[Rfam]
This 93-nucleotide sequence from Oceanospirillales bacterium LUC14_002_19_P2 belongs to the Rfam family "t44 RNA". Lineage of the source: Bacteria > Pseudomonadati > Pseudomonadota > Gammaproteobacteria > Oceanospirillales. By type it is a small RNA. About the family: This family consists of a number of bacterial RNA genes of between 135 and 170 bases in length. The t44 gene has been identified in several species of enteric bacteria but homologs have also been identified in Pseudomonas and Coxiella species. The t44 gene is found between the map and rpsB genes in all species in the full alignment apart from Shigella flexneri. The function of this RNA is unknown.

RNA sequence: AUUCUUAUGACUUAAAACCACACAUGCACCGACACAUGGUUUCUGGGUGCCCGCUUAAAAAGGGUCGAAUCAUGGGGUGUAUGGAGGCAUAAC
Numbered sequence: 001a002u003u004c005u006u007a008u009g010a011c012u013u014a015a016a017a018c019c020a021c022a023c024a025u026g027c028a029c030c031g032a033c034a035c036a037u038g039g040u041u042u043c044u045g046g047g048u049g050c051c052c053g054c055u056u057a058a059a060a061a062g063g064g065u066c067g068a069a070u071c072a073u074g075g076g077g078u079g080u081a082u083g084g085a086g087g088c089a090u091a092a093c
Stems, first nucleotide, its partner, number of pairs: 023083008035074005041069003049065004

The family's consensus secondary structure was predicted with LocARNA.